[Rfam]
The record is a 190-nucleotide RNA sequence from Urocolius indicus, which matches "U2 spliceosomal RNA" in Rfam. About the family: U2 is a small nuclear RNA (snRNA) component of the spliceosome (involved in pre-mRNA splicing). Lineage of the source: Eukaryota > Craniata > Sauropsida > Saurischia > Urocolius. The family's consensus secondary structure is taken from published work. It scores 107 bits against the family's covariance model. Gene Ontology terms of the family: pre-mRNA branch point binding, U2 snRNP and mRNA branch site recognition. The family's RNA type in Rfam is spliceosomal small nuclear RNA.
RNA sequence: AAUGCUUCUCAACCUUUUGGCUGAGAACAAGUGUAGUAUCUGUUCUUAUUAGUUUAAUAUCUGAUACAUCCUUGAUGAGAGGACUUCAUGUUAAGUGGGGUUUUGGUGUUGGGAGUUGGACCCAGCCCUUGCUCACUCCACUCUGGACAUGUCCCAGGAUUGCAGUGUCUCAGCGGAACGGGUGUUUUUA
Numbered sequence: 001a002a003u004g005c006u007u008c009u010c011a012a013c014c015u016u017u018u019g020g021c022u023g024a025g026a027a028c029a030a031g032u033g034u035a036g037u038a039u040c041u042g043u044u045c046u047u048a049u050u051a052g053u054u055u056a057a058u059a060u061c062u063g064a065u066a067c068a069u070c071c072u073u074g075a076u077g078a079g080a081g082g083a084c085u086u087c088a089u090g091u092u093a094a095g096u097g098g099g100g101u102u103u104u105g106g107u108g109u110u111g112g113g114a115g116u117u118g119g120a121c122c123c124a125g126c127c128c129u130u131g132c133u134c135a136c137u138c139c140a141c142u143c144u145g146g147a148c149a150u151g152u153c154c155c156a157g158g159a160u161u162g163c164a165g166u167g168u169c170u171c172a173g174c175g176g177a178a179c180g181g182g183u184g185u186u187u188u189u190a
Stems, first nucleotide, its partner, number of pairs: 007026003011022001013020002047066006069083005112144005118138002125134001147183002150180003153175001155173001157171002